[Rfam]
RNA sequence: AUCGGUUACCGGGCCCCUCUGGCGGAGCGCACAGCGCCCGUGAUGUCGGAAACCGUCG
Numbered sequence: 001a002u003c004g005g006u007u008a009c010c011g012g013g014c015c016c017c018u019c020u021g022g023c024g025g026a027g028c029g030c031a032c033a034g035c036g037c038c039c040g041u042g043a044u045g046u047c048g049g050a051a052a053c054c055g056u057c058g
Stems, first nucleotide, its partner, number of pairs: 006052002009049004022041004027037003